About this RNA
This 384-nucleotide RNA sequence from Sporosarcina sp. JAI121 belongs to the Rfam family "Bacterial RNase P class B".
[Rfam]
RNA sequence: GAAUUCAGGUAAUCGCUGCAACAUCCCAUGUUGUAGAGGAAAGUCCAUGCUCACACGGUUCUGAGAUGACCGUAGUGUUCGUGCUCGGCGAAAGAAUAAGCCGUGGCUUCGCGCAUAGCGCGUUGACGGCGGGUAUAAAUCCUAAGUCUUCGGAUAUGGAUGAGGUUCCCUGAACAGUGCCACAGUGACGUAGCUGAUUCGGAAACGGAUCAGAUGGAACGCGGUAAACCCCACGAGUGAGAAACCCAAACUAUGGUAGGGGCACUCUUCCAAAGGAAAUGAACUGAGGAAGGGACAGGCAAAUGCCUGUAGAUAGAUGAUUACCACCCUUCGUACGAGGCGCAAGCCGUUUGAGUACACGGGAACAAAACAUGGCUUAUCGAA
Numbered sequence: 001g002a003a004u005u006c007a008g009g010u011a012a013u014c015g016c017u018g019c020a021a022c023a024u025c026c027c028a029u030g031u032u033g034u035a036g037a038g039g040a041a042a043g044u045c046c047a048u049g050c051u052c053a054c055a056c057g058g059u060u061c062u063g064a065g066a067u068g069a070c071c072g073u074a075g076u077g078u079u080c081g082u083g084c085u086c087g088g089c090g091a092a093a094g095a096a097u098a099a100g101c102c103g104u105g106g107c108u109u110c111g112c113g114c115a116u117a118g119c120g121c122g123u124u125g126a127c128g129g130c131g132g133g134u135a136u137a138a139a140u141c142c143u144a145a146g147u148c149u150u151c152g153g154a155u156a157u158g159g160a161u162g163a164g165g166u167u168c169c170c171u172g173a174a175c176a177g178u179g180c181c182a183c184a185g186u187g188a189c190g191u192a193g194c195u196g197a198u199u200c201g202g203a204a205a206c207g208g209a210u211c212a213g214a215u216g217g218a219a220c221g222c223g224g225u226a227a228a229c230c231c232c233a234c235g236a237g238u239g240a241g242a243a244a245c246c247c248a249a250a251c252u253a254u255g256g257u258a259g260g261g262g263c264a265c266u267c268u269u270c271c272a273a274a275g276g277a278a279a280u281g282a283a284c285u286g287a288g289g290a291a292g293g294g295a296c297a298g299g300c301a302a303a304u305g306c307c308u309g310u311a312g313a314u315a316g317a318u319g320a321u322u323a324c325c326a327c328c329c330u331u332c333g334u335a336c337g338a339g340g341c342g343c344a345a346g347c348c349g350u351u352u353g354a355g356u357a358c359a360c361g362g363g364a365a366c367a368a369a370a371c372a373u374g375g376c377u378u379a380u381c382g383a384a
Base pairs, nucleotide, nucleotide: 004384005383006382007380008325009324010323011322012321013320014319016036017035018034019033020032021031041378042377043376045375046374047373048372049371050241051240052239053238054237055073056072057071058070060069061068079236080235081234082233083232084105086103087102088101089100106127107125110122111121112120113119114118128231129230131170132169133168139161140160141159142158146155147154148153177229178228179225180224181223194213195212196211197210198209199208200207201206245261246260247259265294266293267292268291269290270289271288295310296309297308298307299306300305328363329362330361333358334357335356336355
Dot-bracket structure: ...(((((((((((.((((((.........))))))....[[[.[[[[[(((((((((.((......)))))).....((((((.((((..........)))).)((..(((((...)))))..).)((.(((.....((((...(((....)))..))))......)))......(((((............((((((((....)))))))).........)))..))))))))))))))...(((...........)))...(((((((................)))))))((((((....))))))........)))))))..(((..((((..................))))..))).......]]]]]]]].).)))
It is annotated as a ribozyme. The match comes from Rfam's covariance-model search (322 bits). Lineage of the source: Bacteria > Bacillati > Bacillota > Bacilli > Sporosarcina. About the family: Ribonuclease P (RNase P) is a ubiquitous endoribonuclease, found in archaea, bacteria and eukarya as well as chloroplasts and mitochondria.